[Rfam]
RNA sequence: UCCUCUCACUGGCAAACUUAUUGAAAAGUAAGGACGCAAAGCUUCAGGCCUAAGGAGAUUGUCUAAGGCGGCUGGGUUGCACCC
Numbered sequence: 001u002c003c004u005c006u007c008a009c010u011g012g013c014a015a016a017c018u019u020a021u022u023g024a025a026a027a028g029u030a031a032g033g034a035c036g037c038a039a040a041g042c043u044u045c046a047g048g049c050c051u052a053a054g055g056a057g058a059u060u061g062u063c064u065a066a067g068g069c070g071g072c073u074g075g076g077u078u079g080c081a082c083c084c
Base pairs, nucleotide, nucleotide: 012037013036017032018031019030020029021028022027040078041077042076043075045074046073047072048069049068050067055063056062

The family of this 84-nucleotide RNA sequence from Paenibacillus sp. PvR098 is "c-di-GMP-I riboswitch aptamer".
Rfam describes the family as follows. GEMM was predicted in a large-scale screen for bacterial structured RNA regulatory elements.
A search with the family's covariance model found it, with a score of 66 bits.